A member of the RNA family "Pab91 RNA" from Thermococcus barophilus, 57 nucleotides long. Rfam classes the family as an H/ACA-box small nucleolar RNA. A search with the family's covariance model found it, with a score of 72 bits. A reference for the family is Muller et al. (2008), "Combined in silico and experimental identification of the Pyrococcus abyssi H/ACA sRNAs and their target sites in ribosomal RNAs", Nucleic Acids Res.
[Rfam]
RNA sequence: GCCCUCCCCACUCACACCUCCGGGAUAAAUGACCGGGGGUCGGUCGGGGAGGGUACA
Number, nucleotide and partner (000 for none) at each position: 001g054002c053003c052004c051005u050006c049007c048008c047009c046010a000011c000012u000013c000014a000015c000016a040017c039018c038019u037020c036021c035022g034023g033024g000025a000026u000027a000028a000029a000030u000031g000032a000033c023034c022035g021036g020037g019038g018039g017040u016041c000042g000043g000044u000045c000046g009047g008048g007049g006050a005051g004052g003053g002054u001055a000056c000057a000

Lineage of the source: Archaea > Thermococci > Thermococcaceae > Thermococcus > Thermococcus barophilus.